[Rfam]
RNA: Small nucleolar RNA snoR109
RNA sequence: UGGCUGUAGCUAAAAUGUCAGAUGUUUACUGGCCGGUUGUUGUGAGAUACACUCUCUGUCGACAGAUCUGCUUACCGAACUUCGUACAUUA
Numbered sequence: 001u002g003g004c005u006g007u008a009g010c011u012a013a014a015a016u017g018u019c020a021g022a023u024g025u026u027u028a029c030u031g032g033c034c035g036g037u038u039g040u041u042g043u044g045a046g047a048u049a050c051a052c053u054c055u056c057u058g059u060c061g062a063c064a065g066a067u068c069u070g071c072u073u074a075c076c077g078a079a080c081u082u083c084g085u086a087c088a089u090u091a
Base pairs, nucleotide, nucleotide: 021083022082024080025079026078031072032071033070035068036067037066038065039063040062041061042060